[Rfam]
This 141-nucleotide RNA sequence from Callithrix jacchus belongs to the Rfam family "U4 spliceosomal RNA". Pairs were carried over by alignment from the consensus structure, which is taken from published work. It is annotated as a spliceosomal small nuclear RNA. The source organism's lineage runs through Eukaryota, Vertebrata, Boreoeutheria, Primates and Callithrix. For this family Rfam cites "Mechanism of 5' splice site transfer for human spliceosome activation" (Charenton et al., Science, 2019).
RNA sequence: AGCUUUGCACCGUGGCAGUAUUGUAGCCGAUGAGGUUUAUCUGAGGCACAACUAUUGCUAAUUGAAAACUUUUCCCAAUACCCCGCCAUGACGACUUGAAAUAGAGUCGGCACUGGCAAUUUUUAACAGUCUCUACGGAGA
Number, nucleotide and partner (000 for none) at each position: 001a000002g000003c000004u000005u000006u000007g000008c000009a000010c000011c000012g000013u000014g000015g000016c000017a000018g000019u000020a000021u051022u050023g049024u048025a000026g047027c046028c045029g000030a000031u000032g000033a000034g042035g041036u000037u000038u000039a000040u000041c035042u034043g000044a000045g028046g027047c026048a024049c023050a022051a021052c000053u000054a000055u000056u000057g000058c000059u000060a000061a000062u000063u000064g000065a000066a000067a000068a000069c000070u000071u000072u000073u000074c000075c000076c000077a000078a000079u000080a000081c000082c000083c000084c000085g117086c116087c115088a000089u112090g111091a000092c109093g108094a107095c106096u105097u104098g000099a000100a000101a000102u000103a000104g097105a096106g095107u094108c093109g092110g000111c090112a089113c000114u000115g087116g086117c085118a000119a000120u000121u000122u000123u000124u000125a000126a000127c000128a000129g000130u141131c140132u139133c138134u000135a000136c000137g000138g133139a132140g131141a130